[Rfam]
RNA sequence: GCGGGGGUAGUUUAACGGUAGAACUUCUGCCUUCCAAGCAGAGAGUGAGGGUUCGAUUCCCUUCGUCCGCU
Dot-bracket structure: (((((.(..((((.......)))).(((((.......)))))....(((((.......)))))).))))).
About this RNA:
tRNA: a 71-nucleotide RNA sequence from Paenibacillus polymyxa.